[Rfam]
RNA sequence: AAUUAAGCCGGGCAGUUGAACCAUAUUGUGCGCCCUGCAUUUGCUUAAGCACUAAAAAGGAGAAA
Numbered sequence: 001a002a003u004u005a006a007g008c009c010g011g012g013c014a015g016u017u018g019a020a021c022c023a024u025a026u027u028g029u030g031c032g033c034c035c036u037g038c039a040u041u042u043g044c045u046u047a048a049g050c051a052c053u054a055a056a057a058a059g060g061a062g063a064a065a
Base pairs, nucleotide, nucleotide: 010035011034012033013032026055027054028052029051030050031049037044038043
A member of the RNA family "SAM-V (S-adenosyl methionine) riboswitch aptamer" from Candidatus Pelagibacter communis, 65 nucleotides long. The family's consensus secondary structure is taken from published work. NCBI's taxonomy places the organism under Bacteria, Pseudomonadota, Candidatus Pelagibacteraceae, Candidatus Pelagibacter, Candidatus Pelagibacter communis. Rfam's curators write: SAM-V riboswitch is a cis-regulatory element that was recognised in marine bacteria it recognise S-adenosylmethione (SAM). The binding of SAM leads to the association of the triplex third strand in the aptamer of SAM-V riboswitch that stabilizes a short helix and occludes the ribosome binding site. The literature on the family includes a 2009 paper in RNA by Poiata et al., "A variant riboswitch aptamer class for S-adenosylmethionine common in marine bacteria".